[Rfam]
RNA sequence: CUCUUAUCCAGAGAGGUGGAGGGACUGGCCCUUUGAAGCCUCGGCAACCUGUAGCGUUAUGCUACCAAUAGGUGCCAAUUCCAGCAAGACUGCACAGGAGGUGCGGUUUGGCAGAUAAGAG
Dot-bracket structure: ((((((((....(((((...(((.[[[[)))......)))))((((.((..(.(..........).)...))))))...(]]]]((((.(..............).))))..)))))))))
Numbered sequence: 001c002u003c004u005u006a007u008c009c010a011g012a013g014a015g016g017u018g019g020a021g022g023g024a025c026u027g028g029c030c031c032u033u034u035g036a037a038g039c040c041u042c043g044g045c046a047a048c049c050u051g052u053a054g055c056g057u058u059a060u061g062c063u064a065c066c067a068a069u070a071g072g073u074g075c076c077a078a079u080u081c082c083a084g085c086a087a088g089a090c091u092g093c094a095c096a097g098g099a100g101g102u103g104c105g106g107u108u109u110g111g112c113a114g115a116u117a118a119g120a121g
Stems, first nucleotide, its partner, number of pairs: 001121008013042005021031003025084004043076004048072002052067001054065001080113001085110004090105001
SAM riboswitch aptamer (S box leader): a 121-nucleotide sequence from Tumebacillus algifaecis.
The source organism's lineage runs through Bacteria, Bacillati, Bacillota, Bacilli and Tumebacillus.
It scores 84 bits against the family's covariance model.